[Rfam]
Nucleotides: 098
Base pairs, nucleotide, nucleotide: 019083020082021081022080023079024078025077029047030046031045032044033043056074057073058072059071060070061069
Number, partner (000 for none) and nucleotide at each position: 001000a002000g003000u004000a005000u006000c007000a008000c009000a010000u011000u012000u013000u014000a015000a016000a017000u018000a019083a020082c021081u022080u023079a024078u025077a026000u027000a028000u029047g030046a031045u032044c033043a034000u035000a036000a037000u038000a039000u040000g041000g042000u043033u044032g045031a046030u047029c048000g049000u050000c051000u052000c053000u054000a055000c056074c057073c058072a059071a060070c061069a062000c063000c064000g065000u066000a067000a068000a069061u070060g071059u072058u073057g074056g075000c076000c077025u078024a079023u080022a081021a082020g083019u084000a085000a086000a087000a088000a089000a090000g091000a092000g093000c094000g095000u096000a097000g098000a